[Rfam]
RNA: ASdes TB sRNA
Organism: Segniliparus rotundus
RNA sequence: AAGAGGACCGGGUCCGUCGCGCCGGUCACCACGAGGUAAUCGCGCAGGGCGAUGGCGUGCGCGCCCUC
Numbered sequence: 001a002a003g004a005g006g007a008c009c010g011g012g013u014c015c016g017u018c019g020c021g022c023c024g025g026u027c028a029c030c031a032c033g034a035g036g037u038a039a040u041c042g043c044g045c046a047g048g049g050c051g052a053u054g055g056c057g058u059g060c061g062c063g064c065c066c067u068c
Base pairs, nucleotide, nucleotide: 005062008059011030012029013028016026017025018024035056037054038053040052041051042050043049